[Rfam]
RNA sequence: CACCUCCCCCGACCUGACACAAUGUCCUGCCGAGACGUUGUACGACCUGCAGUGUCCAGCGUCGGUGGAGAUG
Numbered sequence: 001c002a003c004c005u006c007c008c009c010c011g012a013c014c015u016g017a018c019a020c021a022a023u024g025u026c027c028u029g030c031c032g033a034g035a036c037g038u039u040g041u042a043c044g045a046c047c048u049g050c051a052g053u054g055u056c057c058a059g060c061g062u063c064g065g066u067g068g069a070g071a072u073g
Base pairs, nucleotide, nucleotide: 001073002072004070005069006068007067009065010064011063012062013061021039022038023037024036025035026034044056045055046054
Rfam assigns this 73-nucleotide RNA sequence from Thelonectria olida to the family "bZIP non canonical Hac1/Xbp1 intron". Taxonomically the source falls in Thelonectria (Eukaryota, Fungi, saccharomyceta, Sordariomycetes). The family's RNA type in Rfam is small RNA. On this family, see Iracane et al., mSphere 2018: "Identification of an Exceptionally Long Intron in the HAC1 Gene of Candida parapsilosis". bZIP intron RNA is a non-canonical intron that was first reported in HAC1 gene in yeast and XBP1 gene in Metazoa.